Annotation
A member of the RNA family "Group II catalytic intron D1-D4-6" from Halorhodospira halochloris, 255 nucleotides long. The pairing is the family consensus, mapped onto this sequence.
RNA sequence: GAAGUCCCCGUCGGGCAAGGGUUUGCCACCCACCCGUACCGAGUCUUGGACCUGUGGCGGAGUGAGGGAAGACGAACAAGGCAGGUUAAGCGUAGACAGAGAAUCCUGUAGGCCGUAGGGGUGGUCGCGCACCCUGAAGUGCUGGUACAGCUUCGACAAGCUCAGUUCCGGACGCCGAGGGUUUUAACGUGCCCGAGGGCAACACGAAGCACCCGCAAUGGCGAGGGUGUGGAGGUCUGGCGGGGUCAUCAGGCC
Numbered sequence: 001g002a003a004g005u006c007c008c009c010g011u012c013g014g015g016c017a018a019g020g021g022u023u024u025g026c027c028a029c030c031c032a033c034c035c036g037u038a039c040c041g042a043g044u045c046u047u048g049g050a051c052c053u054g055u056g057g058c059g060g061a062g063u064g065a066g067g068g069a070a071g072a073c074g075a076a077c078a079a080g081g082c083a084g085g086u087u088a089a090g091c092g093u094a095g096a097c098a099g100a101g102a103a104u105c106c107u108g109u110a111g112g113c114c115g116u117a118g119g120g121g122u123g124g125u126c127g128c129g130c131a132c133c134c135u136g137a138a139g140u141g142c143u144g145g146u147a148c149a150g151c152u153u154c155g156a157c158a159a160g161c162u163c164a165g166u167u168c169c170g171g172a173c174g175c176c177g178a179g180g181g182u183u184u185u186a187a188c189g190u191g192c193c194c195g196a197g198g199g200c201a202a203c204a205c206g207a208a209g210c211a212c213c214c215g216c217a218a219u220g221g222c223g224a225g226g227g228u229g230u231g232g233a234g235g236u237c238u239g240g241c242g243g244g245g246u247c248a249u250c251a252g253g254c255c
Base pairs, nucleotide, nucleotide: 012036013035014034015033019031020030021029022028023224024223025222026221040099043097044096045095046094047092048091049087050086051085052084053083054082055081059077147249150246151245152244153243154242155241168240169239170238171237172236173235174200175199176198179194180193181192182191205234209230210229211228212227213226214225